[Rfam]
RNA sequence: GGAUGUGAGGGCAAUCUGGUUGUGACAUCUGUCACCCCAUUGAUCACCAGGGUUGAUUCAGCUGAUCUGGCUGGCUAGGCAAGUGUCCCCUUCCUCCCUCACCAUUCCAUGUCCAUCCCUCCCAAAGCUGCGUGCCUGGUCAAAGAGGAUGACCAUCCCUGAUAGAGGAGGACCAGUCAUUGGUCAAGGGUAUAUGAGUAGCCAUUCUCCCCUGCUAGGGCCUCCAAACACACUCUCAAGGUCCAUUUGUAGAAGAACGUAGGGUAGUCAAGCUUCCAAGACUCCAGACACAUCCAAAUGAGGCACUGCACGUGGCAGUAUGCCUUUCUAA
Numbered sequence: 001g002g003a004u005g006u007g008a009g010g011g012c013a014a015u016c017u018g019g020u021u022g023u024g025a026c027a028u029c030u031g032u033c034a035c036c037c038c039a040u041u042g043a044u045c046a047c048c049a050g051g052g053u054u055g056a057u058u059c060a061g062c063u064g065a066u067c068u069g070g071c072u073g074g075c076u077a078g079g080c081a082a083g084u085g086u087c088c089c090c091u092u093c094c095u096c097c098c099u100c101a102c103c104a105u106u107c108c109a110u111g112u113c114c115a116u117c118c119c120u121c122c123c124a125a126a127g128c129u130g131c132g133u134g135c136c137u138g139g140u141c142a143a144a145g146a147g148g149a150u151g152a153c154c155a156u157c158c159c160u161g162a163u164a165g166a167g168g169a170g171g172a173c174c175a176g177u178c179a180u181u182g183g184u185c186a187a188g189g190g191u192a193u194a195u196g197a198g199u200a201g202c203c204a205u206u207c208u209c210c211c212c213u214g215c216u217a218g219g220g221c222c223u224c225c226a227a228a229c230a231c232a233c234u235c236u237c238a239a240g241g242u243c244c245a246u247u248u249g250u251a252g253a254a255g256a257a258c259g260u261a262g263g264g265u266a267g268u269c270a271a272g273c274u275u276c277c278a279a280g281a282c283u284c285c286a287g288a289c290a291c292a293u294c295c296a297a298a299u300g301a302g303g304c305a306c307u308g309c310a311c312g313u314g315g316c317a318g319u320a321u322g323c324c325u326u327u328c329u330a331a
Stems, first nucleotide, its partner, number of pairs: 001108003005102007014092001018090002024087005030081004035074002037070003042067004047061001116171002118168004122139003127135002140162003147158003201273002207267002210264006222255002225252001228250003232246001298329001300326005305319005
RNA: 7SK RNA